[Rfam]
RNA: Streptomyces sRNA scr5239
Organism: Streptomyces agglomeratus
RNA sequence: CCUCCAUCCUCCCCGCACAGGAGGGUGGACCGAGGCACCGGCGCUCUCUGCCCUGACUGCGUCGUGGCCUCUGACGGCCGCGCGGGACCGCACACCCGCGCACGGCCGGAGCAGCUCCGGGCUGCGGUGCCAGGAGGGCUGAGGGUCCCUCCCAGGCGC
Number, nucleotide and partner (000 for none) at each position: 001c000002c000003u029004c028005c027006a026007u000008c024009c023010u022011c021012c020013c000014c000015g000016c000017a000018c000019a000020g012021g011022a010023g009024g008025g000026u006027g005028g004029a003030c000031c000032g071033a070034g069035g068036c067037a000038c000039c064040g063041g062042c000043g060044c059045u056046c055047u000048c000049u000050g000051c000052c000053c000054u000055g046056a045057c000058u000059g044060c043061g000062u041063c040064g039065u000066g000067g036068c035069c034070u033071c032072u000073g000074a000075c108076g107077g106078c105079c104080g103081c000082g000083c000084g097085g096086g095087a000088c000089c000090g000091c000092a000093c000094a000095c086096c085097c084098g000099c000100g000101c000102a000103c080104g079105g078106c077107c076108g075109g000110a000111g000112c000113a000114g128115c127116u126117c000118c124119g123120g000121g000122c000123u119124g118125c000126g116127g115128u114129g000130c000131c000132a000133g152134g151135a150136g149137g148138g147139c000140u000141g000142a000143g000144g000145g000146u000147c138148c137149c136150u135151c134152c133153c000154a000155g000156g000157c000158g000159c000